Nucleotides: 089
Base pairs, nucleotide, nucleotide: 005085006084007083008082009081011080012079013078020035021034022033023032037070038069039068040066041065044064045063046062050058051057
Number, partner (000 for none) and nucleotide at each position: 001000a002000c003000a004000g005085u006084c007083a008082c009081g010000u011080c012079g013078g014000g015000a016000g017000a018000g019000a020035u021034c022033g023032g024000c025000u026000u027000a028000a029000g030000c031000g032023c033022c034021g035020g036000c037070g038069c039068c040066g041065a042000a043000g044064g045063a046062g047000c048000a049000a050058c051057c052000g053000c054000c055000c056000c057051g058050g059000a060000a061000a062046c063045u064044c065041u066040c067000a068039g069038g070037c071000a072000a073000a074000c075000g076000g077000a078013c079012c080011g081009c082008g083007u084006g085005a086000c087000u088000u089000g
Rfam assigns this 89-nucleotide RNA sequence from Bradyrhizobium sediminis to the family "Glycine riboswitch aptamer".
It scores 64 bits against the family's covariance model.
Taxonomically the source falls in Bradyrhizobium (Bacteria, Pseudomonadati, Alphaproteobacteria, Nitrobacteraceae).
The base pairs follow the family's consensus structure.